[Rfam]
Nucleotides: 083
Base pairs, nucleotide, nucleotide: 010075011074012073013072014071015070016069017068018067019066020065021064022063024061026059027058028057029056030055031054034051035050036049037048
Number, partner (000 for none) and nucleotide at each position: 001000a002000g003000g004000c005000c006000u007000g008000c009000a010075g011074a012073g013072a014071g015070a016069g017068a018067g019066g020065c021064a022063g023000g024061g025000u026059u027058u028057g029056a030055u031054c032000u033000u034051c035050a036049g037048c038000c039000u040000c041000a042000g043000u044000g045000a046000c047000a048037g049036c050035u051034g052000u053000u054031g055030a056029u057028c058027a059026g060000c061024u062000g063022u064021u065020g066019c067018c068017u069016c070015u071014c072013u073012c074011u075010u076000u077000c078000u079000c080000u081000c082000u083000g
Background
Shown here is an 83-nucleotide RNA sequence from Cnephaeus nilssonii, a member of the family "mir-574 microRNA precursor family". It scores 95 bits against the family's covariance model. The family's consensus secondary structure was predicted with RNAalifold.